Shown here is an 85-nucleotide RNA from Megaselia scalaris, a member of the family "mir-67 microRNA precursor family". The literature on the family includes a 2008 paper in Insect Biochem Mol Biol by Cao et al., "Identification of conserved microRNAs in Bombyx mori (silkworm) and regulation of fibroin L chain production by microRNAs in heterologous system". Pairs were carried over by alignment from the consensus structure, which was predicted with RNAalifold.
RNA sequence: UUUUGCUGUGACUCACUCAACCUGGGUGUGAUGUUUUUAUAAAUAUGGUAUCCAUCACAACCUCCUUGAGUGAGCGAUGGCGAAA
Numbered sequence: 001u002u003u004u005g006c007u008g009u010g011a012c013u014c015a016c017u018c019a020a021c022c023u024g025g026g027u028g029u030g031a032u033g034u035u036u037u038u039a040u041a042a043a044u045a046u047g048g049u050a051u052c053c054a055u056c057a058c059a060a061c062c063u064c065c066u067u068g069a070g071u072g073a074g075c076g077a078u079g080g081c082g083a084a085a
Stems, first nucleotide, its partner, number of pairs: 009076002012074009024062002027059007